[Rfam]
RNA sequence: AGUCUUCCUUUAACUGAAAAUUUUUCCUUACAAACAGAUAUGACCAGAAGGCA
Numbered sequence: 001a002g003u004c005u006u007c008c009u010u011u012a013a014c015u016g017a018a019a020a021u022u023u024u025u026c027c028u029u030a031c032a033a034a035c036a037g038a039u040a041u042g043a044c045c046a047g048a049a050g051g052c053a
Base pairs, nucleotide, nucleotide: 002052003051004050005049006048007047013039014037015036016035
Notes:
Rfam assigns this 53-nucleotide RNA to the family "APC internal ribosome entry site (IRES)". Gene Ontology term of the family: ribosome binding. From the family's description: This family represents an APC internal ribosome entry site (IRES) which is located in the coding sequence of the gene. APC is a tumour suppressor gene which is associated with the inherited disease adenomatous polyposis coli (APC).It is thought that IRES-mediated translation of APC is important for an apoptotic cascade. The family's consensus secondary structure is taken from published work.